[Rfam]
RNA sequence: GACAAUAAACAACAGAUGCAAUAAGUUUAGCGGACUCGGGGGCGGUACCCGACAUCUCCACCAAAAUGUACUUUCAUUUGUAGAAAAUAGAAUGGUUUAUGGGGAUGAAAUAGGAUCGACGUACUCCUAAAAGUCUGUUUUUUGUCCGUUAGUUUUCGUAAAAAGCGUUGAUUUAAAUGCAAAUCAAAACAGUAGCAUGAGUCCUGCUAACUUCAAUAGGACUUCUUUUGCACCUGCAGUUGCAGUUGCUUAA
Numbered sequence: 001g002a003c004a005a006u007a008a009a010c011a012a013c014a015g016a017u018g019c020a021a022u023a024a025g026u027u028u029a030g031c032g033g034a035c036u037c038g039g040g041g042g043c044g045g046u047a048c049c050c051g052a053c054a055u056c057u058c059c060a061c062c063a064a065a066a067u068g069u070a071c072u073u074u075c076a077u078u079u080g081u082a083g084a085a086a087a088u089a090g091a092a093u094g095g096u097u098u099a100u101g102g103g104g105a106u107g108a109a110a111u112a113g114g115a116u117c118g119a120c121g122u123a124c125u126c127c128u129a130a131a132a133g134u135c136u137g138u139u140u141u142u143u144g145u146c147c148g149u150u151a152g153u154u155u156u157c158g159u160a161a162a163a164a165g166c167g168u169u170g171a172u173u174u175a176a177a178u179g180c181a182a183a184u185c186a187a188a189a190c191a192g193u194a195g196c197a198u199g200a201g202u203c204c205u206g207c208u209a210a211c212u213u214c215a216a217u218a219g220g221a222c223u224u225c226u227u228u229u230g231c232a233c234c235u236g237c238a239g240u241u242g243c244a245g246u247u248g249c250u251u252a253a
Stems, first nucleotide, its partner, number of pairs: 001146005014136004028123001030122003036052005053107007147158002
RNA: permuted transfer-messenger RNA